[Rfam]
A member of the RNA family "Actinobacteria sRNA Ms_IGR-5" from Branchiibius sp. NY16-3462-2, 219 nucleotides long. The source organism's lineage runs through Bacteria, Bacillati, Micrococcales, Dermacoccaceae and Branchiibius.
RNA sequence: ACACGAGAGAGGAGGUGGUCCUGCAGUGAUUUCAGCAAGGACGCGUGAGGUGGUUGCGCGCUAGCGCAAGUCAUCGAAGAACGCCGGUCCCAACGCCCGGCGAGUGACUCGAUGGACGCCGCGCCUGCGAAUUCCUCGCAGCCGCCGCAGCCCGCGGGCGGAUGCCUCGUCCAGCAUCCACGCCGACCAUCCCGGUCGGCAGCCCGCGGGCUGUUCCAC
Number, nucleotide and partner (000 for none) at each position: 001a000002c000003a000004c000005g000006a000007g000008a000009g000010a000011g000012g000013a000014g000015g057016u056017g055018g054019u053020c000021c000022u000023g000024c000025a000026g000027u000028g000029a000030u000031u000032u000033c000034a000035g000036c000037a000038a000039g000040g000041a000042c000043g000044c000045g000046u000047g000048a000049g000050g000051u000052g000053g019054u018055u017056g016057c015058g000059c129060g128061c127062u000063a000064g124065c123066g122067c121068a000069a000070g117071u116072c115073a000074u000075c000076g000077a000078a000079g000080a000081a000082c000083g000084c000085c000086g000087g000088u000089c000090c000091c000092a000093a000094c000095g000096c000097c000098c000099g000100g000101c000102g000103a000104g000105u000106g000107a000108c000109u000110c000111g000112a000113u000114g000115g072116a071117c070118g000119c000120c000121g067122c066123g065124c064125c000126u000127g061128c060129g059130a000131a000132u000133u000134c000135c000136u000137c000138g000139c000140a000141g000142c000143c000144g000145c000146c000147g000148c213149a212150g211151c210152c209153c208154g207155c206156g205157g204158g203159c202160g000161g178162a177163u176164g175165c174166c000167u000168c000169g000170u000171c000172c000173a000174g165175c164176a163177u162178c161179c000180a000181c000182g000183c000184c000185g000186a000187c000188c000189a000190u000191c000192c000193c000194g000195g000196u000197c000198g000199g000200c000201a000202g159203c158204c157205c156206g155207c154208g153209g152210g151211c150212u149213g148214u000215u000216c000217c000218a000219c000
By type it is a small RNA.